[Rfam]
This 275-nucleotide part of an RNA from Haematospirillum jordaniae belongs to the Rfam family "Bacterial large subunit ribosomal RNA". A search with the family's covariance model found it, with a score of 2739 bits. The base pairs follow the family's consensus structure, which is taken from published work.
RNA sequence: GACAAACAGGGUGAGAAACCCUGUCGCCGUAAGUCCAAGGGUUCCUGCGCAAGGCUAAUCCGCGCAGGGUAAGCCGGCCCCUAAGGCGAGGCCGAAAGGCGUAGUCGAUGGGAACCACGCUAAUAUUCGUGGGCCAGGUGGAUGUGACGCCCGUCGUAAAUCGUUGCUCCUUAUCGGAUUGAAGCAGCGGUGAAGACGGGCCAGGAAAUAACACCACCAACAAUGACCGUACCCGAAACCGACACAGGUGGACUGGUAGAGUAUACCAAGGCGCU
Numbered sequence: 001g002a003c004a005a006a007c008a009g010g011g012u013g014a015g016a017a018a019c020c021c022u023g024u025c026g027c028c029g030u031a032a033g034u035c036c037a038a039g040g041g042u043u044c045c046u047g048c049g050c051a052a053g054g055c056u057a058a059u060c061c062g063c064g065c066a067g068g069g070u071a072a073g074c075c076g077g078c079c080c081c082u083a084a085g086g087c088g089a090g091g092c093c094g095a096a097a098g099g100c101g102u103a104g105u106c107g108a109u110g111g112g113a114a115c116c117a118c119g120c121u122a123a124u125a126u127u128c129g130u131g132g133g134c135c136a137g138g139u140g141g142a143u144g145u146g147a148c149g150c151c152c153g154u155c156g157u158a159a160a161u162c163g164u165u166g167c168u169c170c171u172u173a174u175c176g177g178a179u180u181g182a183a184g185c186a187g188c189g190g191u192g193a194a195g196a197c198g199g200g201c202c203a204g205g206a207a208a209u210a211a212c213a214c215c216a217c218c219a220a221c222a223a224u225g226a227c228c229g230u231a232c233c234c235g236a237a238a239c240c241g242a243c244a245c246a247g248g249u250g251g252a253c254u255g256g257u258a259g260a261g262u263a264u265a266c267c268a269a270g271g272c273g274c275u
Base pairs, nucleotide, nucleotide: 006024007023008022009021010020011019025273026272027271028270033253034252035251036250039233040232044068045067046066047065048064049063053061054060075229076228077227080111081110085106086105087104089102091100092099093098115132116131117130118129119128135225136224137218138217141215143213144212145211149201150200151199152198160191161190162189163188164187165186166185167184168183170181239248240247255267256266257265258264